The record is a 116-nucleotide sequence from Oryza meyeriana, which matches "Plastid-psbA-1 3UTR RNA" in Rfam. Plastid psbA-1 is a non-coding RNA (ncRNA) present in plastids. It was identified in inverted repeat sequences in the 3 prime untranslate region (3UTR) of photosystem II quinone-binding protein (psbA). Clan: Plastid-psbA 3UTR RNA clan. A search with the family's covariance model found it, with a score of 72 bits. It is annotated as a cis-regulatory element.
[Rfam]
RNA sequence: UUGAAGUUCCAUCUCUUAAAGGAUAAGGCUUUUCUGCUAACAUACAGCAAUUUUUUAAGGAAGGAAAGCUAGAAAUACCCAAUAUCUUGCUGAAAGAUAUUGGGUAUUUCUUUUUC
Numbered sequence: 001u002u003g004a005a006g007u008u009c010c011a012u013c014u015c016u017u018a019a020a021g022g023a024u025a026a027g028g029c030u031u032u033u034c035u036g037c038u039a040a041c042a043u044a045c046a047g048c049a050a051u052u053u054u055u056u057a058a059g060g061a062a063g064g065a066a067a068g069c070u071a072g073a074a075a076u077a078c079c080c081a082a083u084a085u086c087u088u089g090c091u092g093a094a095a096g097a098u099a100u101u102g103g104g105u106a107u108u109u110c111u112u113u114u115u116c
Stems, first nucleotide, its partner, number of pairs: 008023003012019001064116004071111008080102003084098005